Rfam assigns this 96-nucleotide RNA from Bdellovibrio sp. to the family "Purine riboswitch aptamer".

[Rfam]
RNA sequence: CGAGUCUUCCCACGUUACCUAAGUAUAUGCUGAAGAUUUGGUUCAGUGUUUCUACCGGGCGCCUAAGGCCCGACUACAAAAGGGGAUUUUAGAUGA
Numbered sequence: 001c002g003a004g005u006c007u008u009c010c011c012a013c014g015u016u017a018c019c020u021a022a023g024u025a026u027a028u029g030c031u032g033a034a035g036a037u038u039u040g041g042u043u044c045a046g047u048g049u050u051u052c053u054a055c056c057g058g059g060c061g062c063c064u065a066a067g068g069c070c071c072g073a074c075u076a077c078a079a080a081a082g083g084g085g086a087u088u089u090u091a092g093a094u095g096a
Base pairs, nucleotide, nucleotide: 018082020080023077024076025075029047030046031045032044033043034042056072057071058070059069060068
The organism belongs to Bdellovibrio, within Bacteria. About the family: Riboswitches are metabolite binding domains within certain messenger RNAs that serve as precision sensors for their corresponding targets.